[Rfam]
RNA sequence: GGCUCCUUCAUCUAGCGGUUAGGAUACCACCCUUUCACGGUGGCUACAGGGGUUCGAGUCCCCUAGGAGUCA
Numbered sequence: 001g002g003c004u005c006c007u008u009c010a011u012c013u014a015g016c017g018g019u020u021a022g023g024a025u026a027c028c029a030c031c032c033u034u035u036c037a038c039g040g041u042g043g044c045u046a047c048a049g050g051g052g053u054u055c056g057a058g059u060c061c062c063c064u065a066g067g068a069g070u071c072a
Stems, first nucleotide, its partner, number of pairs: 001071007010025004027043005048064005
Rfam assigns this 72-nucleotide RNA from Helicobacter canadensis to the family "tRNA". The base pairs follow the family's consensus structure, which is taken from published work. The source organism's lineage runs through Bacteria, Pseudomonadati, Campylobacterota, Campylobacterales and Helicobacter canadensis.